[Rfam]
RNA sequence: CCGGUCGCCGCGCUGGGACCGGCCAUGUCAGGGAGGAGCGCCCAGGCUGCUUCUUGGCGCCCUCUCGUAUCUAUGUUGCUCCAAGGAGGAUGUAGCUAUGAGAA
Numbered sequence: 001c002c003g004g005u006c007g008c009c010g011c012g013c014u015g016g017g018a019c020c021g022g023c024c025a026u027g028u029c030a031g032g033g034a035g036g037a038g039c040g041c042c043c044a045g046g047c048u049g050c051u052u053c054u055u056g057g058c059g060c061c062c063u064c065u066c067g068u069a070u071c072u073a074u075g076u077u078g079c080u081c082c083a084a085g086g087a088g089g090a091u092g093u094a095g096c097u098a099u100g101a102g103a104a
Stems, first nucleotide, its partner, number of pairs: 001022006008016002035063002038060005044054003064102006071095007079088003
Dot-bracket structure: ((((((.((.....))))))))............((.(((((.(((.....))).))))).))((((((.(((((((.(((....)))))))))).))))))..